This 112-nucleotide RNA sequence from Veillonella criceti belongs to the Rfam family "SAM riboswitch aptamer (S box leader)". About the family: The SAM riboswitch is found upstream of a number of genes which code for proteins involved in methionine or cysteine biosynthesis in Gram-positive bacteria.
RNA sequence: GUAUCAUCUAGAGCAGCUGAGGGAACUGGCCCAGUGACGCUGCGGCAACCUGCUUUAUAACUAAGUAUAUAGAGGAAGGUGCUAAGUCCAACGGGAAACCGGCAGAUGAUAA
Numbered sequence: 001g002u003a004u005c006a007u008c009u010a011g012a013g014c015a016g017c018u019g020a021g022g023g024a025a026c027u028g029g030c031c032c033a034g035u036g037a038c039g040c041u042g043c044g045g046c047a048a049c050c051u052g053c054u055u056u057a058u059a060a061c062u063a064a065g066u067a068u069a070u071a072g073a074g075g076a077a078g079g080u081g082c083u084a085a086g087u088c089c090a091a092c093g094g095g096a097a098a099c100c101g102g103c104a105g106a107u108g109a110u111a112a
Stems, first nucleotide, its partner, number of pairs: 002111007013043005021032003027090003044083004049079002053074007087104001092101003

The match comes from Rfam's covariance-model search (72 bits).